RNA sequence: UGGAGAAGGGGAGCACGUGCAGAGUUGUUGAGUAAGAGAGGACUUGCACGUGCCCUGCUUCUCCAGC
Number, nucleotide and partner (000 for none) at each position: 001u065002g064003g063004a062005g061006a060007a059008g058009g000010g056011g055012a000013g053014c052015a051016c050017g049018u048019g047020c046021a045022g044023a000024g000025u000026u000027g000028u035029u034030g000031a000032g000033u000034a029035a028036g000037a000038g000039a000040g000041g000042a000043c000044u022045u021046g020047c019048a018049c017050g016051u015052g014053c013054c000055c011056u010057g000058c008059u007060u006061c005062u004063c003064c002065a001066g000067c000
Background
The family of this 67-nucleotide sequence from Turnera subulata is "MIR164 microRNA precursor family". The literature on the family includes a 2002 paper in Genes Dev by Reinhart et al., "MicroRNAs in plants". The family's consensus secondary structure was predicted with RNAalifold. Rfam 15.1 lists 201 matches to the family in 125 species.